[Rfam]
RNA sequence: UUGCAUGCUUUUCCACGGCUUUCUUGAACUUCUUUUUCUCUCUUUGUGUUAGUAAAUGGAUUAAAGAGGAUGAAGGUCAAGAAAGCCGUGGGAAAACAUGAACG
Numbered sequence: 001u002u003g004c005a006u007g008c009u010u011u012u013c014c015a016c017g018g019c020u021u022u023c024u025u026g027a028a029c030u031u032c033u034u035u036u037u038c039u040c041u042c043u044u045u046g047u048g049u050u051a052g053u054a055a056a057u058g059g060a061u062u063a064a065a066g067a068g069g070a071u072g073a074a075g076g077u078c079a080a081g082a083a084a085g086c087c088g089u090g091g092g093a094a095a096a097c098a099u100g101a102a103c104g
Stems, first nucleotide, its partner, number of pairs: 004100004013091003017087006024080004029075004
Overview:
Rfam assigns this 104-nucleotide sequence from Gossypium aridum to the family "MIR396 microRNA precursor family". NCBI's taxonomy places the organism under Eukaryota, Euphyllophyta, malvids, Malvales, Gossypium. Rfam links the family to the GO terms RISC complex and miRNA-mediated post-transcriptional gene silencing.